[Rfam]
RNA sequence: UAGGGGAGUUGGGGUUUGGACCCUCUCCCAGAACCCAGGGUAACUCUUAAAGUGGAGGGGAC
Numbered sequence: 001u002a003g004g005g006g007a008g009u010u011g012g013g014g015u016u017u018g019g020a021c022c023c024u025c026u027c028c029c030a031g032a033a034c035c036c037a038g039g040g041u042a043a044c045u046c047u048u049a050a051a052g053u054g055g056a057g058g059g060g061a062c
Stems, first nucleotide, its partner, number of pairs: 008041003012036004016031004022060006
Notes
Shown here is a 62-nucleotide sequence from Panthera leo, a member of the family "Gag/pol translational readthrough site". Taxonomically the source falls in Panthera (Eukaryota, Chordata, Gnathostomata, Euteleostomi). For this family Rfam cites "Pseudoknot-dependent read-through of retroviral gag termination codons: importance of sequences in the spacer and loop 2" (Wills et al., EMBO J, 1994).